[Rfam]
RNA sequence: UUAUACCCAUGGGGGUGCCCGGUACCAGUACAUCGCAGCCCAUUUUAAGUAGAAUACGGGCCAUGGUUCUCUUGUUUGCUUGGCGCGGUGCCGGGCUGAGAAAAGCGUUUUUUCGCUUUACCCUUUGAACCUGAUCUGGAUCAUACCAGCGUAGGGAAAUGGGUGACCGGCAGUG
Numbered sequence: 001u002u003a004u005a006c007c008c009a010u011g012g013g014g015g016u017g018c019c020c021g022g023u024a025c026c027a028g029u030a031c032a033u034c035g036c037a038g039c040c041c042a043u044u045u046u047a048a049g050u051a052g053a054a055u056a057c058g059g060g061c062c063a064u065g066g067u068u069c070u071c072u073u074g075u076u077u078g079c080u081u082g083g084c085g086c087g088g089u090g091c092c093g094g095g096c097u098g099a100g101a102a103a104a105g106c107g108u109u110u111u112u113u114c115g116c117u118u119u120a121c122c123c124u125u126u127g128a129a130c131c132u133g134a135u136c137u138g139g140a141u142c143a144u145a146c147c148a149g150c151g152u153a154g155g156g157a158a159a160u161g162g163g164u165g166a167c168c169g170g171c172a173g174u175g
Base pairs, nucleotide, nucleotide: 006163007162008161009160010159011124012123013122014121017096018095019094020093021092022091023090024089025088026087103118104117105116106115107114130155131154132153133152136149137148138147139146
Rfam assigns this 175-nucleotide RNA from Desulfofundulus salinus to the family "TPP riboswitch aptamer (THI element)".